[Rfam]
RNA: mir-130 microRNA precursor family
RNA sequence: AUUAUCCUGAAGGUCUUUUAAAAUUUUACUGUUGUGUGAGCUACACACAACAGUAAAAUUUUAAAAGACCUUCAGGAUAAU
Numbered sequence: 001a002u003u004a005u006c007c008u009g010a011a012g013g014u015c016u017u018u019u020a021a022a023a024u025u026u027u028a029c030u031g032u033u034g035u036g037u038g039a040g041c042u043a044c045a046c047a048c049a050a051c052a053g054u055a056a057a058a059u060u061u062u063a064a065a066a067g068a069c070c071u072u073c074a075g076g077a078u079a080a081u
Base pairs, nucleotide, nucleotide: 003080005077006076007075008074009073010072012070013069014068015067016066017065018064019063022060023059024058025057026056027055028054029053030052